Description:
This 88-nucleotide sequence from Niallia taxi belongs to the Rfam family "c-di-GMP-I riboswitch aptamer". It scores 78 bits against the family's covariance model. Pairs were carried over by alignment from the consensus structure, which is taken from published work.
RNA sequence: CCAAGAUAAAGGCAAACCAUUUGAAAGAGUGGGACGCAAAGCUACAGAUCUAAGGCAGCUCUUCUGCUAUGAUGGCUGGGUCACCUUA
Numbered sequence: 001c002c003a004a005g006a007u008a009a010a011g012g013c014a015a016a017c018c019a020u021u022u023g024a025a026a027g028a029g030u031g032g033g034a035c036g037c038a039a040a041g042c043u044a045c046a047g048a049u050c051u052a053a054g055g056c057a058g059c060u061c062u063u064c065u066g067c068u069a070u071g072a073u074g075g076c077u078g079g080g081u082c083a084c085c086u087u088a
Stems, first nucleotide, its partner, number of pairs: 012037002017032006041081003045078003048073003055067004